RNA sequence: GAAGCAAGCCAGACCGCCGCUGGGGCAAGCACCGAAAGGUGGCCCUGGAGGAAGGUCCGGACUGCACAGAGCGGCGUAGCAGUUAACGGCUGCCCACCGUGAGGUGAGGAUCAGAGCAACAGAGACGAGCCGAUUCAGUUCGGGUGAAACGGGCAAUCUCUACGCGCAGCAACACCGAAUAGGCACACGUUGAUCCGGCUCGGGGAGUGUGCGGGUAGGUGGCACCGAGCCGGUGGGGCGACCCCCGGCCCAGAGGAAUGGCGGUCACGGCGUCGGCGCUCCGCAAGGGGCGCCGGCGCUGCACAGAAUCCGGCCUAUCGGCUCGCUUCACAC
Numbered sequence: 001g002a003a004g005c006a007a008g009c010c011a012g013a014c015c016g017c018c019g020c021u022g023g024g025g026c027a028a029g030c031a032c033c034g035a036a037a038g039g040u041g042g043c044c045c046u047g048g049a050g051g052a053a054g055g056u057c058c059g060g061a062c063u064g065c066a067c068a069g070a071g072c073g074g075c076g077u078a079g080c081a082g083u084u085a086a087c088g089g090c091u092g093c094c095c096a097c098c099g100u101g102a103g104g105u106g107a108g109g110a111u112c113a114g115a116g117c118a119a120c121a122g123a124g125a126c127g128a129g130c131c132g133a134u135u136c137a138g139u140u141c142g143g144g145u146g147a148a149a150c151g152g153g154c155a156a157u158c159u160c161u162a163c164g165c166g167c168a169g170c171a172a173c174a175c176c177g178a179a180u181a182g183g184c185a186c187a188c189g190u191u192g193a194u195c196c197g198g199c200u201c202g203g204g205g206a207g208u209g210u211g212c213g214g215g216u217a218g219g220u221g222g223c224a225c226c227g228a229g230c231c232g233g234u235g236g237g238g239c240g241a242c243c244c245c246c247g248g249c250c251c252a253g254a255g256g257a258a259u260g261g262c263g264g265u266c267a268c269g270g271c272g273u274c275g276g277c278g279c280u281c282c283g284c285a286a287g288g289g290g291c292g293c294c295g296g297c298g299c300u301g302c303a304c305a306g307a308a309u310c311c312g313g314c315c316u317a318u319c320g321g322c323u324c325g326c327u328u329c330a331c332a333c
Stems, first nucleotide, its partner, number of pairs: 001329005007323004011318001012266007020048007028040001053316003057313005062169004069201004074165005079093005094108001095106004109160002114158002116154002130143004173221004183212006194204003229249005235244003
A member of the RNA family "Bacterial RNase P class A" from Pseudaquabacterium pictum, 333 nucleotides long. Pairs were carried over by alignment from the consensus structure, which is taken from published work. A search with the family's covariance model found it, with a score of 190 bits.